[Rfam]
RNA sequence: GGUUCGGGAGCGGCCCGUCGGGAAGGGCCGCAUGAAUGGAACCUCCCCCCUGAUCGCAAUCGGCACGCGCCUGAGCCCCGACAGGCCGCGCG
Numbered sequence: 001g002g003u004u005c006g007g008g009a010g011c012g013g014c015c016c017g018u019c020g021g022g023a024a025g026g027g028c029c030g031c032a033u034g035a036a037u038g039g040a041a042c043c044u045c046c047c048c049c050c051u052g053a054u055c056g057c058a059a060u061c062g063g064c065a066c067g068c069g070c071c072u073g074a075g076c077c078c079c080g081a082c083a084g085g086c087c088g089c090g091c092g
Stems, first nucleotide, its partner, number of pairs: 001043005010031007064092001066090003069086005

Shown here is a 92-nucleotide RNA sequence from Gemmobacter lutimaris, a member of the family "Rhodo-rpoB RNA". The family's consensus secondary structure is taken from published work. It scores 75 bits against the family's covariance model. The source organism's lineage runs through Bacteria, Pseudomonadati, Alphaproteobacteria, Paracoccaceae and Gemmobacter. By type it is a cis-regulatory element.